[Rfam]
RNA: tRNA
RNA sequence: GGAAGUAUGGGUGAGCGGUCGAUACCAGCACAUUGCUAACGUGCCGAGCCGCAAGGCUCCGAAGGUUCGAAUCCUUCUGCUUCCG
Numbered sequence: 001g002g003a004a005g006u007a008u009g010g011g012u013g014a015g016c017g018g019u020c021g022a023u024a025c026c027a028g029c030a031c032a033u034u035g036c037u038a039a040c041g042u043g044c045c046g047a048g049c050c051g052c053a054a055g056g057c058u059c060c061g062a063a064g065g066u067u068c069g070a071a072u073c074c075u076u077c078u079g080c081u082u083c084c085g
Base pairs, nucleotide, nucleotide: 001084002083003082004081005080006079007078010026011025012024013023028044029043030042031041061077062076063075064074065073
Dot-bracket structure: (((((((..((((.........)))).((((.........))))................(((((.......)))))))))))).